Rfam assigns this 143-nucleotide sequence from Mesocricetus auratus to the family "Small nucleolar RNA SNORA43". Taxonomically the source falls in Mesocricetus (Eukaryota, Eumetazoa, Teleostomi, Cricetidae).
RNA sequence: GGUGUCCUGGAUCUGUCAGUACUACAGGCAUACCACAGCUACUCUGCUGUGCCUGUGACAUCAGGGCAAAGUGCAAGUAGCUAUUUCUAUGCUCAGUGUUCAGAAGCCAGUGAGCACUAAGAAUGGUACAUAGACUGACAUUU
Numbered sequence: 001g002g003u004g005u006c007c008u009g010g011a012u013c014u015g016u017c018a019g020u021a022c023u024a025c026a027g028g029c030a031u032a033c034c035a036c037a038g039c040u041a042c043u044c045u046g047c048u049g050u051g052c053c054u055g056u057g058a059c060a061u062c063a064g065g066g067c068a069a070a071g072u073g074c075a076a077g078u079a080g081c082u083a084u085u086u087c088u089a090u091g092c093u094c095a096g097u098g099u100u101c102a103g104a105a106g107c108c109a110g111u112g113a114g115c116a117c118u119a120a121g122a123a124u125g126g127u128a129c130a131u132a133g134a135c136u137g138a139c140a141u142u143u
Base pairs, nucleotide, nucleotide: 003068004067005066006065007064008063009062010061024056025055026054027053028052029051081133087126088125089124092121093120097116098115099114100113101112102111

Clan: SNORA17 clan.
ACA43 is a member of the H/ACA class of snoRNA that guide the sites of modification of uridines to pseudouridines.
The match comes from Rfam's covariance-model search (120 bits).